The record is a 73-nucleotide sequence from Phaedon cochleariae, which matches "mir-133 microRNA precursor family" in Rfam.
NCBI's taxonomy places the organism under Eukaryota, Ecdysozoa, Hexapoda, Endopterygota, Phaedon.
The match comes from Rfam's covariance-model search (57 bits).
RNA sequence: CAGCUUUAGCUGGUUGAGACCGGGUCAAAUUUUGAUUCGAGAUUAUUUGGUCCCCUUCAACCAGCUGUGGUUG
Numbered sequence: 001c002a003g004c005u006u007u008a009g010c011u012g013g014u015u016g017a018g019a020c021c022g023g024g025u026c027a028a029a030u031u032u033u034g035a036u037u038c039g040a041g042a043u044u045a046u047u048u049g050g051u052c053c054c055c056u057u058c059a060a061c062c063a064g065c066u067g068u069g070g071u072u073g
Stems, first nucleotide, its partner, number of pairs: 003071003008066011022052002025050006
Its family is annotated with miRNA-mediated post-transcriptional gene silencing and RISC complex in the Gene Ontology. Pairs were carried over by alignment from the consensus structure, which was predicted with PFOLD. For this family Rfam cites "Identification of tissue-specific microRNAs from mouse" (Lagos-Quintana et al., Curr Biol, 2002).